[Rfam]
RNA sequence: GCUUUCCUUGUCAUGGGGUGGUUGGGAAACUCAAUGAACGUGUAGUGAGAGCUUCCCUGCUAACACCAUAAUCGACACACACGCGCCACCCGGACCUUGAGUCCGGACCACGGCGCAAUUUUUGGAACC
Numbered sequence: 001g002c003u004u005u006c007c008u009u010g011u012c013a014u015g016g017g018g019u020g021g022u023u024g025g026g027a028a029a030c031u032c033a034a035u036g037a038a039c040g041u042g043u044a045g046u047g048a049g050a051g052c053u054u055c056c057c058u059g060c061u062a063a064c065a066c067c068a069u070a071a072u073c074g075a076c077a078c079a080c081a082c083g084c085g086c087c088a089c090c091c092g093g094a095c096c097u098u099g100a101g102u103c104c105g106g107a108c109c110a111c112g113g114c115g116c117a118a119u120u121u122u123u124g125g126a127a128c129c
Stems, first nucleotide, its partner, number of pairs: 006018004021060002024057001026055003030051003038046002083116005090106006
The record is a 129-nucleotide RNA sequence from Takifugu flavidus, which matches "U4atac minor spliceosomal RNA" in Rfam. A search with the family's covariance model found it, with a score of 91 bits. It is annotated as a spliceosomal small nuclear RNA. U4atac is an essential component of the minor U12-type spliceosome complex which is required for removal of the rarer class of eukaryotic introns (AT-AC, U12-type). Clan: U4 clan.